[Rfam]
This 266-nucleotide sequence from Aspergillus luchuensis belongs to the Rfam family "Fungal signal recognition particle RNA". Pairs were carried over by alignment from the consensus structure, which is taken from published work. The source organism's lineage runs through Eukaryota, Eurotiomycetes, Aspergillaceae, Aspergillus and Aspergillus subgen. Circumdati. Clan: SRP clan. The family's RNA type in Rfam is non-coding RNA gene. Rfam 15.1 lists 748 matches to the family in 741 species. Its family is annotated with signal recognition particle, plasma membrane targeting, signal recognition particle, endoplasmic reticulum targeting and SRP-dependent cotranslational protein targeting to membrane, signal sequence recognition in the Gene Ontology. A reference for the family is Batey et al. (2001), "Structural and energetic analysis of RNA recognition by a universally conserved protein from the signal recognition particle", J Mol Biol.
RNA sequence: UAUCUGUCACGGAUAGUUCGGUGGGAGGUCAGCCGCCAAGUCAAUAACCUUGCUUAGGUAAUUGCCAGCGGGACUGGUGCCUGGUACGAAUCCCGGGGUCGUCAUUGUACUCGUGCGAGUAAUCCACGAUGCUAUGAGGCGCUAAGCAAUGGAAGUGACCCUUGAGGGAAGCAAUUCUGCAGAGACAUUUCCACCCCGGGAUGGCGUCGCCAGAUUACACCGUCCCGUUACAGGGAAGUUGGCACUUUGGCUGGGCAACUACUAUU
Numbered sequence: 001u002a003u004c005u006g007u008c009a010c011g012g013a014u015a016g017u018u019c020g021g022u023g024g025g026a027g028g029u030c031a032g033c034c035g036c037c038a039a040g041u042c043a044a045u046a047a048c049c050u051u052g053c054u055u056a057g058g059u060a061a062u063u064g065c066c067a068g069c070g071g072g073a074c075u076g077g078u079g080c081c082u083g084g085u086a087c088g089a090a091u092c093c094c095g096g097g098g099u100c101g102u103c104a105u106u107g108u109a110c111u112c113g114u115g116c117g118a119g120u121a122a123u124c125c126a127c128g129a130u131g132c133u134a135u136g137a138g139g140c141g142c143u144a145a146g147c148a149a150u151g152g153a154a155g156u157g158a159c160c161c162u163u164g165a166g167g168g169a170a171g172c173a174a175u176u177c178u179g180c181a182g183a184g185a186c187a188u189u190u191c192c193a194c195c196c197c198g199g200g201a202u203g204g205c206g207u208c209g210c211c212a213g214a215u216u217a218c219a220c221c222g223u224c225c226c227g228u229u230a231c232a233g234g235g236a237a238g239u240u241g242g243c244a245c246u247u248u249g250g251c252u253g254g255g256c257a258a259c260u261a262c263u264a265u266u
Stems, first nucleotide, its partner, number of pairs: 001015004020263005029254007038247003050238002053235002057066003069227006076221004081213005086207003090202009100141001102139002105136001107132003111129005117124002142146001150193007161184003168177003